[Rfam]
RNA sequence: AAGCGUUAAUCCAAAGUUCUGUGACCAGAAAGGCAGUUCUUUGGGGAGCUUUAUAAAGGUUCUGCGUUUACCAAGAGCUGGUCUUAAGUCAUCUUGAAUGACCGAAAGAAAAUGCUGAAA
Numbered sequence: 001a002a003g004c005g006u007u008a009a010u011c012c013a014a015a016g017u018u019c020u021g022u023g024a025c026c027a028g029a030a031a032g033g034c035a036g037u038u039c040u041u042u043g044g045g046g047a048g049c050u051u052u053a054u055a056a057a058g059g060u061u062c063u064g065c066g067u068u069u070a071c072c073a074a075g076a077g078c079u080g081g082u083c084u085u086a087a088g089u090c091a092u093c094u095u096g097a098a099u100g101a102c103c104g105a106a107a108g109a110a111a112a113u114g115c116u117g118a119a120a
Base pairs, nucleotide, nucleotide: 001051002050003049004048011044012043013042014041015040016039019036020035021034022033025081026080027079028078064115065114066113088102089101090100091099092098
Rfam assigns this 120-nucleotide RNA to the family "drum RNA". By type it is a small RNA. Rfam's curators write: Firmicutes, Bacteroidetes (1 example), Proteobacteria (2 examples), Spirochaetes (2 examples).